Rfam assigns this 153-nucleotide sequence from Papaver somniferum to the family "Small nucleolar RNA snoR2/U65".
The family is grouped with related families in Rfam's "SNORA65 clan".
The match comes from Rfam's covariance-model search (113 bits).

[Rfam]
RNA sequence: GGUCCGAGCCACGUUGAUGGUAGCCGUAAGUUGGCAAUGACCAUCAAUGCUAUGAUUGGACCUAAAAAAAUUCCAUUGUUUCGCAUCUUGAUAGGAAACUGUUUACUGAUUAUAAUCCAUUCAUUUACAGUGCCGUUUUGUGCGAUUACAUAU
Numbered sequence: 001g002g003u004c005c006g007a008g009c010c011a012c013g014u015u016g017a018u019g020g021u022a023g024c025c026g027u028a029a030g031u032u033g034g035c036a037a038u039g040a041c042c043a044u045c046a047a048u049g050c051u052a053u054g055a056u057u058g059g060a061c062c063u064a065a066a067a068a069a070a071u072u073c074c075a076u077u078g079u080u081u082c083g084c085a086u087c088u089u090g091a092u093a094g095g096a097a098a099c100u101g102u103u104u105a106c107u108g109a110u111u112a113u114a115a116u117c118c119a120u121u122c123a124u125u126u127a128c129a130g131u132g133c134c135g136u137u138u139u140g141u142g143c144g145a146u147u148a149c150a151u152a153u
Base pairs, nucleotide, nucleotide: 002061003060004059005058006057007056008053012049013048014047015046016045017044019042020041021040023035024034025033081145082144083143084142085141094134095133099130100129101128105124
Pairs were carried over by alignment from the consensus structure, which was predicted with WAR.
It is annotated as an H/ACA-box small nucleolar RNA.